[Rfam]
RNA: Histone 3' UTR stem-loop
Organism: Eptatretus burgeri
RNA sequence: CCAACGGCUCUUUUCAGAGCCACCACACUUUUCUUGAAAGUGUAAU
Numbered sequence: 001c002c003a004a005c006g007g008c009u010c011u012u013u014u015c016a017g018a019g020c021c022a023c024c025a026c027a028c029u030u031u032u033c034u035u036g037a038a039a040g041u042g043u044a045a046u
Stems, first nucleotide, its partner, number of pairs: 006021006